[Rfam]
A member of the RNA family "mraW RNA" from Arthrobacter oryzae, 120 nucleotides long. By type it is a cis-regulatory element. The source organism's lineage runs through Bacteria, Bacillati, Actinomycetes, Micrococcaceae and Arthrobacter.
RNA sequence: CGACGUUCUUUGAUUGAGAUCUCCAGCCGCCCAGCCGGCUGUUUUCCUGACUCACUUCCCCGGAGCCAGGCGGACGCCAGACUGGGGCGGAUGGGGAUCUGGAUCAAGGACCGGCCCGAU
Dot-bracket structure: .........((((((..((.(((((.((((((((..(........((((.(((.........))).))))....)......)))).)))).))))).))..)))))).............